[Rfam]
RNA: small nucleolar RNA snoR126
Organism: Quercus lobata
RNA sequence: AGGCUGUGAUGACGAACAACAUUUCUCGAUUCUGAUAUUAUGUACUUUUUUUAGUAUUGGACCAGAGCAAUUAUAUUUGCUCUCUGAUGACUUCAUUUAUGCGUGUCUGAGCCUU
Numbered sequence: 001a002g003g004c005u006g007u008g009a010u011g012a013c014g015a016a017c018a019a020c021a022u023u024u025c026u027c028g029a030u031u032c033u034g035a036u037a038u039u040a041u042g043u044a045c046u047u048u049u050u051u052u053a054g055u056a057u058u059g060g061a062c063c064a065g066a067g068c069a070a071u072u073a074u075a076u077u078u079g080c081u082c083u084c085u086g087a088u089g090a091c092u093u094c095a096u097u098u099a100u101g102c103g104u105g106u107c108u109g110a111g112c113c114u115u
Stems, first nucleotide, its partner, number of pairs: 001114004